FMN riboswitch aptamer (RFN element): a 139-nucleotide sequence from Staphylococcus epidermidis. The RFN element is a highly conserved domain that is found frequently in the 5'-untranslated regions of prokaryotic mRNAs that encode for flavin mononucleotide (FMN) biosynthesis and transport proteins.
[Rfam]
RNA sequence: UAUUUCUUUCGGGGCAGGGUGAAAUUCCCAACCGGCAGUAAAUUGAGCCUGCGACCCACUAAUAUUGUUUUUGAUGUUAGUGGCUGAUCUAGUGUGAAUCUAGAGCCGACAGUUAGAGUCUGGAUGGGAGAAAGAAGUU
Numbered sequence: 001u002a003u004u005u006c007u008u009u010c011g012g013g014g015c016a017g018g019g020u021g022a023a024a025u026u027c028c029c030a031a032c033c034g035g036c037a038g039u040a041a042a043u044u045g046a047g048c049c050u051g052c053g054a055c056c057c058a059c060u061a062a063u064a065u066u067g068u069u070u071u072u073g074a075u076g077u078u079a080g081u082g083g084c085u086g087a088u089c090u091a092g093u094g095u096g097a098a099u100c101u102a103g104a105g106c107c108g109a110c111a112g113u114u115a116g117a118g119u120c121u122g123g124a125u126g127g128g129a130g131a132a133a134g135a136a137g138u139u
Stems, first nucleotide, its partner, number of pairs: 003137008017029003031119002033108002035052004047106002056083006088104005110122003
Record summary: Its family is annotated with FMN binding in the Gene Ontology.